RNA sequence: AAUAAUUGCUUCUGUAAAUCCCUCUGGAUAAGAGUGUCUGCUAAAUGACGUAAA
Numbered sequence: 001a002a003u004a005a006u007u008g009c010u011u012c013u014g015u016a017a018a019u020c021c022c023u024c025u026g027g028a029u030a031a032g033a034g035u036g037u038c039u040g041c042u043a044a045a046u047g048a049c050g051u052a053a054a
Stems, first nucleotide, its partner, number of pairs: 013043001014041003020036001022034004
UnaL2 LINE 3' element: a 54-nucleotide RNA sequence from Hucho hucho. The family's RNA type in Rfam is cis-regulatory element. Gene Ontology term of the family: transposition, RNA-mediated. It scores 55 bits against the family's covariance model.